[Rfam]
RNA sequence: GUGCCUGUGGGAUGAACACGUCCCAACAUUUACUCCAUUUUUUCACUUUGUCAGCUAGUAGCCAUACAUGUUUAUAGCUGAUCAUUAAGAAUGGGAAAUGU
Numbered sequence: 001g002u003g004c005c006u007g008u009g010g011g012a013u014g015a016a017c018a019c020g021u022c023c024c025a026a027c028a029u030u031u032a033c034u035c036c037a038u039u040u041u042u043u044c045a046c047u048u049u050g051u052c053a054g055c056u057a058g059u060a061g062c063c064a065u066a067c068a069u070g071u072u073u074a075u076a077g078c079u080g081a082u083c084a085u086u087a088a089g090a091a092u093g094g095g096a097a098a099u100g101u
Base pairs, nucleotide, nucleotide: 034095035094036093037092038091039090050082051081052080053079054078055077056076057075
The family of this 101-nucleotide RNA sequence from Miscanthus lutarioriparius is "Small nucleolar RNA snoR99". A search with the family's covariance model found it, with a score of 74 bits. Pairs were carried over by alignment from the consensus structure, which was predicted with WAR. NCBI's taxonomy places the organism under Eukaryota, Spermatophyta, Petrosaviidae, Poales, Miscanthus. It is annotated as an H/ACA-box small nucleolar RNA.